RNA sequence: ACGGAAGCCCGGUGAGGCCAAGGCUCGAUCCAGAAGAGAAGGUUCGGUCUCCCGACCCGGGCGCCCAGCAUGGUUCCCGGCACCCACGCGGAGUCAUAGCCACGAUAACGGCAGAAGUGUUGCGGGUCUGCGUAAUUGCGAACAGCAGAUGGCAUCGACGGCCCUUUGGGUGGGGCUACAGCUAGAAGCGUCGCAAGAUCGCCGAGGCCACCCACGCAACCCCAGGAGUGCACGCUUGGUAACCGAGAACCGUGUUGGUGGGCGGCGAUUCGAGUUCUUCGGGUCGCCGCCUGCUUUUUGUU
Numbered sequence: 001a002c003g004g005a006a007g008c009c010c011g012g013u014g015a016g017g018c019c020a021a022g023g024c025u026c027g028a029u030c031c032a033g034a035a036g037a038g039a040a041g042g043u044u045c046g047g048u049c050u051c052c053c054g055a056c057c058c059g060g061g062c063g064c065c066c067a068g069c070a071u072g073g074u075u076c077c078c079g080g081c082a083c084c085c086a087c088g089c090g091g092a093g094u095c096a097u098a099g100c101c102a103c104g105a106u107a108a109c110g111g112c113a114g115a116a117g118u119g120u121u122g123c124g125g126g127u128c129u130g131c132g133u134a135a136u137u138g139c140g141a142a143c144a145g146c147a148g149a150u151g152g153c154a155u156c157g158a159c160g161g162c163c164c165u166u167u168g169g170g171u172g173g174g175g176c177u178a179c180a181g182c183u184a185g186a187a188g189c190g191u192c193g194c195a196a197g198a199u200c201g202c203c204g205a206g207g208c209c210a211c212c213c214a215c216g217c218a219a220c221c222c223c224a225g226g227a228g229u230g231c232a233c234g235c236u237u238g239g240u241a242a243c244c245g246a247g248a249a250c251c252g253u254g255u256u257g258g259u260g261g262g263c264g265g266c267g268a269u270u271c272g273a274g275u276u277c278u279u280c281g282g283g284u285c286g287c288c289g290c291c292u293g294c295u296u297u298u299u300g301u302u
Base pairs, nucleotide, nucleotide: 003065004064007062008061009060010059011058012057016053017052021050022049026046027045028044030042031041066257067256068255069254070253071252072251073250074249078245079244080243084239085238086237088235089234090233093231094230099112100111101110119220120219121218122217123216124215125209126208127207128206129205130202131201132200136196137195138194139193140192141191145189146188150184151183152182153181160177161176162175163174164173165172258294259293260292261291262290263289264288265287266286267285268284270282271281272280
RNA: Mycobacterium smegmatis small RNA 1